[Rfam]
RNA sequence: AGCCACUGAUGAAAUUGAUUCUGCCAAAUGAAGUCCUGUGAUAUUAACCAUUUCCGUUCAACAUUGUCUGAGGUU
Numbered sequence: 001a002g003c004c005a006c007u008g009a010u011g012a013a014a015u016u017g018a019u020u021c022u023g024c025c026a027a028a029u030g031a032a033g034u035c036c037u038g039u040g041a042u043a044u045u046a047a048c049c050a051u052u053u054c055c056g057u058u059c060a061a062c063a064u065u066g067u068c069u070g071a072g073g074u075u
Stems, first nucleotide, its partner, number of pairs: 001075004
Small nucleolar RNA SNORD47: a 75-nucleotide RNA from Indicator maculatus. A search with the family's covariance model found it, with a score of 56 bits. The family's RNA type in Rfam is C/D-box small nucleolar RNA. Its family is annotated with RNA processing and nucleolus in the Gene Ontology. The family's consensus secondary structure was predicted with ILM.